RNA sequence: CAGUGUUGAAGGGUCACAUGGGCUGCGCGCACGUUCGCGCAGCCCAUGUGACCCUUCAACACCGA
Numbered sequence: 001c002a003g004u005g006u007u008g009a010a011g012g013g014u015c016a017c018a019u020g021g022g023c024u025g026c027g028c029g030c031a032c033g034u035u036c037g038c039g040c041a042g043c044c045c046a047u048g049u050g051a052c053c054c055u056u057c058a059a060c061a062c063c064g065a
Stems, first nucleotide, its partner, number of pairs: 003062005009056013023042007